The family of this 79-nucleotide RNA sequence from Plantactinospora soyae is "Selenocysteine transfer RNA". The base pairs follow the family's consensus structure, which is taken from published work. It scores 54 bits against the family's covariance model. Lineage of the source: Bacteria > Bacillati > Micromonosporales > Micromonosporaceae > Plantactinospora.
RNA sequence: CGACCUCGCUUCGUCCCCGGUGGGGCGGCCCGUCUGCAAAACGGGUGAUUCUGGUCGGGUUCGACUCCCGGCGAGGUCU
Number, nucleotide and partner (000 for none) at each position: 001c000002g078003a077004c076005c075006u074007c073008g072009c071010u000011u000012c027013g026014u025015c024016c023017c022018c000019g000020g000021u000022g017023g016024g015025g014026c013027g012028g046029c045030c044031c043032g042033u041034c000035u000036g000037c000038a000039a000040a000041a033042c032043g031044g030045g029046u028047g000048a000049u000050u000051c000052u000053g000054g000055u000056c070057g069058g068059g067060u000061u000062c000063g000064a000065c000066u000067c059068c058069c057070g056071g009072c008073g007074a006075g005076g004077u003078c002079u000